MIR1520 microRNA precursor family: a 110-nucleotide RNA from Glycine max. Rfam's curators put it in the seed alignment. Clan: MIR1520 microRNA precursor clan. Lineage of the source: Eukaryota > Gunneridae > Fabales > Phaseoleae > Glycine subgen. Soja.

[Rfam]
RNA sequence: AUGAUGACUGUCACGUGUCAUAUUCUGAUUGAUCAAUAAAAAUAAUAAUACAUUUUAUUUUUUAUGGAGUUGACAUCCAAUCAGAACAUGACACAUGACAAACAUCAUUC
Numbered sequence: 001a002u003g004a005u006g007a008c009u010g011u012c013a014c015g016u017g018u019c020a021u022a023u024u025c026u027g028a029u030u031g032a033u034c035a036a037u038a039a040a041a042a043u044a045a046u047a048a049u050a051c052a053u054u055u056u057a058u059u060u061u062u063u064a065u066g067g068a069g070u071u072g073a074c075a076u077c078c079a080a081u082c083a084g085a086a087c088a089u090g091a092c093a094c095a096u097g098a099c100a101a102a103c104a105u106c107a108u109u110c
Base pairs, nucleotide, nucleotide: 010099011098012097013096015094016093019090020089021088023086024085025084026083028081029080030079